[Rfam]
RNA sequence: GUCUAUGCGUUUCCAUUUGAGUAUCCUGAAAACGGGCUUUUCGGCAUGGAACGUAUAUAUUUUUUAUAGGAGUGCAUAGUGGCCCGUAUAGCAGGCAUUAACAUUCCUGAU
Numbered sequence: 001g002u003c004u005a006u007g008c009g010u011u012u013c014c015a016u017u018u019g020a021g022u023a024u025c026c027u028g029a030a031a032a033c034g035g036g037c038u039u040u041u042c043g044g045c046a047u048g049g050a051a052c053g054u055a056u057a058u059a060u061u062u063u064u065u066a067u068a069g070g071a072g073u074g075c076a077u078a079g080u081g082g083c084c085c086g087u088a089u090a091g092c093a094g095g096c097a098u099u100a101a102c103a104u105u106c107c108u109g110a111u
Stems, first nucleotide, its partner, number of pairs: 004057007012050003025095003033086004041110003
The record is a 111-nucleotide RNA from Duffyella gerundensis, which matches "Alpha operon ribosome binding site" in Rfam.
Rfam describes the family as follows. The bacterial alpha operon ribosome binding site is surrounded by this complex pseudoknotted structure. Translation of the mRNA produces 4 ribosomal protein products, one of which (S4) acts as a translational repressor by binding to the nested pseudoknot region. The mechanism of repression is thought to involve a conformational switch in the pseudoknot region and ribosome entrapment.
The base pairs follow the family's consensus structure, which is taken from published work.